Bacillaceae-1 RNA: a 67-nucleotide RNA from Lysinibacillus composti.
A search with the family's covariance model found it, with a score of 73 bits.
Rfam 15.1 lists 5,721 matches to the family in 247 species.
The source organism's lineage runs through Bacteria, Bacillati, Bacillota, Bacilli and Lysinibacillus.
Rfam classes the family as a small RNA.
[Rfam]
RNA sequence: UAAUUCGGAAGGCAACCUAAGAGCCCCACGUCCUGUGGGAACGGUUGCAUGACCGACAUCCUGUCGG
Dot-bracket structure: ...........((((((.......(((((.....)))))...))))))....(((((.....)))))